[Rfam]
RNA: Archaeal RNase P
RNA sequence: GCAAGCCGAAGGGCAGCCAACGGUUUUUACAUCUUAGGAUGUAAUCAAACUGAGGAAACUCCACACAUCUUACAGAACCGUGGUGCUAUAAAGCACAUGCCAAGAGGCAUGACACUGGAGCAGAAACGACACGUCUUCUGGUGAAUGAAUAUGAUGCGCAAGCUGAAGACACCAGAAGGAACGGUGAAACGGCCAUUCCGCGGGAUGCAAGGGCAAAUACUGUCAGUGAAUCCUGUAUGAGGCAGAGGUAGCUCGCAAAGAUGAAUGCUGCUGGAACAGAAUGUGGGUUAUUCUCGGCAUGC
Dot-bracket structure: (((.(((((((((((((...(((((......................)))))....[[[.[[[[[((((.[[[[[..((((((((((....)))))(((((....)))))((...(((.............(((((((((((..........(.........).......))))))))..))).........))).)))))))))))...((((.....(((((........]]]]]...))))).....))))............)))))).........]]]]]]]].)).))))).)))